Annotation: The record is a 141-nucleotide RNA from Vigna radiata, which matches "Small nucleolar RNA snoR136" in Rfam. Its family is annotated with nucleolus and RNA processing in the Gene Ontology. On this family, see Chen and Wu, Nucleic Acids Res 2009: "Mining small RNA sequencing data: a new approach to identify small nucleolar RNAs in Arabidopsis". Rfam 15.1 lists 452 matches to the family in 212 species. Rfam classes the family as an H/ACA-box small nucleolar RNA. Taxonomically the source falls in Vigna radiata (Eukaryota, Magnoliopsida, rosids, Fabaceae). The base pairs follow the family's consensus structure, which was predicted with mfold.
[Rfam]
Nucleotides: 141
Base pairs, nucleotide, nucleotide: 003070004069005068008065009064010063011062012061019057025056027054028053029052032049034048035047080134081133082132083131084130085129086128088125089124093123094122095121096120102113103112104111
Number, partner (000 for none) and nucleotide at each position: 001000a002000a003070g004069g005068c006000u007000u008065u009064a010063a011062u012061u013000u014000u015000c016000u017000u018000u019057c020000a021000g022000a023000u024000u025056g026000u027054c028053g029052c030000u031000u032049a033000c034048a035047c036000u037000u038000g039000u040000u041000u042000c043000u044000a045000g046000u047035g048034u049032u050000u051000u052029g053028c054027g055000u056025u057019g058000u059000u060000u061012a062011a063010u064009u065008g066000a067000a068005g069004c070003c071000g072000a073000a074000a075000u076000g077000u078000g079000u080134g081133u082132u083131c084130c085129c086128c087000u088125c089124g090000c091000u092000a093123u094122c095121c096120a097000u098000c099000g100000u101000u102113g103112c104111a105000a106000u107000u108000u109000g110000a111104u112103g113102c114000u115000g116000c117000a118000u119000u120096u121095g122094g123093a124089c125088g126000u127000c128086g129085g130084g131083g132082a133081a134080c135000u136000a137000a138000a139000u140000c141000c